Bacterial RNase P class A: a 427-nucleotide RNA sequence from Tuwongella immobilis. NCBI's taxonomy places the organism under Bacteria, Planctomycetota, Planctomycetia, Gemmatales, Tuwongella.
RNA sequence: UGGAUCGAUCAGACGAUCGCGGAGUGACGGGGCAACCCGAGCACGACGAGGAAAGUCCGGGCUUCUUAGGACGCGGUGGUGGGUAACGCCCACCGGUUUCGCCGAGGAAAACGCCUUCGGGUAAUGACGAGCCUCGGUUGGAAUUAGGGAAAGUGCAACAGAAAGAAUACCGCCCUGGGGGCAACCCCAAGGUAAGGGUGAAAUGGUGGGGGAGCUUGCUCCUUAAUGUAAGAGCCCACCAGCGAUUGGGUGACCAAUCGGCUCGGCAAACCCCACCGGAAGCAAGACCAAAUAUGGGAGCAGGACUGGUCCGGUCCGUUACGACUCUCGGGUAGGUUGCUAGAUCAGGCGAGCAAUCGUCUGGGUAGAUAAAUGAUCGUUACGGUGGUCUCCACCGACAGAACCCGGCUUACGGUCGGUCCAUCGC
Numbered sequence: 001u002g003g004a005u006c007g008a009u010c011a012g013a014c015g016a017u018c019g020c021g022g023a024g025u026g027a028c029g030g031g032g033c034a035a036c037c038c039g040a041g042c043a044c045g046a047c048g049a050g051g052a053a054a055g056u057c058c059g060g061g062c063u064u065c066u067u068a069g070g071a072c073g074c075g076g077u078g079g080u081g082g083g084u085a086a087c088g089c090c091c092a093c094c095g096g097u098u099u100c101g102c103c104g105a106g107g108a109a110a111a112c113g114c115c116u117u118c119g120g121g122u123a124a125u126g127a128c129g130a131g132c133c134u135c136g137g138u139u140g141g142a143a144u145u146a147g148g149g150a151a152a153g154u155g156c157a158a159c160a161g162a163a164a165g166a167a168u169a170c171c172g173c174c175c176u177g178g179g180g181g182c183a184a185c186c187c188c189a190a191g192g193u194a195a196g197g198g199u200g201a202a203a204u205g206g207u208g209g210g211g212g213a214g215c216u217u218g219c220u221c222c223u224u225a226a227u228g229u230a231a232g233a234g235c236c237c238a239c240c241a242g243c244g245a246u247u248g249g250g251u252g253a254c255c256a257a258u259c260g261g262c263u264c265g266g267c268a269a270a271c272c273c274c275a276c277c278g279g280a281a282g283c284a285a286g287a288c289c290a291a292a293u294a295u296g297g298g299a300g301c302a303g304g305a306c307u308g309g310u311c312c313g314g315u316c317c318g319u320u321a322c323g324a325c326u327c328u329c330g331g332g333u334a335g336g337u338u339g340c341u342a343g344a345u346c347a348g349g350c351g352a353g354c355a356a357u358c359g360u361c362u363g364g365g366u367a368g369a370u371a372a373a374u375g376a377u378c379g380u381u382a383c384g385g386u387g388g389u390c391u392c393c394a395c396c397g398a399c400a401g402a403a404c405c406c407g408g409c410u411u412a413c414g415g416u417c418g419g420u421c422c423a424u425c426g427c
Base pairs, nucleotide, nucleotide: 001423002422003421004420005419006418007417008416009415010414012381013380014379015378016377017376018375020048021047024044025043026042053411054410055409057408058407059406060405061404062282063281064280065279069317070316071315072314074278075277076276077275078274079093080092081091082090083089094147095145096144097143098142099141100140101139148273149272153271154270155267156266170197171196172193173192174191176189177188178187179186180185205240206239207238208237209236210235242262243260244259245258246257247256248255249254286338287337288336289335296329297328298327299326300325308322312318345364346363347362348361349360350359351358352357
Dot-bracket structure: ((((((((((.(((((((.((..(((...............)))..))....[[[.[[[[[((((...[[[[.((((((((((.....)))))((((((((.....................................))))))).)((...((((.............(((((.(((((....))))).)))..)).......((((((........................)))))).((((((((....))))))).)...))..)))))))))))))...((((......(((((.......(...(.]]]])...)..))))).....))))......((((((((....))))))))..........)))))))......................]]]]]]]]..))))))))))....